[Rfam]
RNA: MIR168 microRNA precursor family
RNA sequence: UCACCGUCUGGCUCGGAUUCGCUUGGUGCAGGCCGGGAACCAAUUGUUUAACACAUCCACGAAGUUUAACUUGCUGGUUUGUGAGAAGGGAUUGGAUCCCGCCUUGCAUCAAUUGAAUCUGAGUCCUGAUGGUGAAA
Numbered sequence: 001u002c003a004c005c006g007u008c009u010g011g012c013u014c015g016g017a018u019u020c021g022c023u024u025g026g027u028g029c030a031g032g033c034c035g036g037g038a039a040c041c042a043a044u045u046g047u048u049u050a051a052c053a054c055a056u057c058c059a060c061g062a063a064g065u066u067u068a069a070c071u072u073g074c075u076g077g078u079u080u081g082u083g084a085g086a087a088g089g090g091a092u093u094g095g096a097u098c099c100c101g102c103c104u105u106g107c108a109u110c111a112a113u114u115g116a117a118u119c120u121g122a123g124u125c126c127u128g129a130u131g132g133u134g135a136a137a
Stems, first nucleotide, its partner, number of pairs: 013122002017118004023112010034101005040095006